Background:
Rfam assigns this 114-nucleotide sequence from Cyprinodon variegatus to the family "Potassium channel RNA editing signal".
RNA sequence: GUAGGAUAUGGAGACAUGUAUCCUAUUACCCUUGGGGGUAAGGUUGUGGGCACUUUGUGUGCAAUAGCAGGUGUCUUGACAAUUGCUUUGCCUGUUCCUGUCAUUGUUUCAAAC
Numbered sequence: 001g002u003a004g005g006a007u008a009u010g011g012a013g014a015c016a017u018g019u020a021u022c023c024u025a026u027u028a029c030c031c032u033u034g035g036g037g038g039u040a041a042g043g044u045u046g047u048g049g050g051c052a053c054u055u056u057g058u059g060u061g062c063a064a065u066a067g068c069a070g071g072u073g074u075c076u077u078g079a080c081a082a083u084u085g086c087u088u089u090g091c092c093u094g095u096u097c098c099u100g101u102c103a104u105u106g107u108u109u110c111a112a113a114c
Base pairs, nucleotide, nucleotide: 001114002113005110008107009106010105011104013102014101015100016099018097020095021094037077038076040074050062051061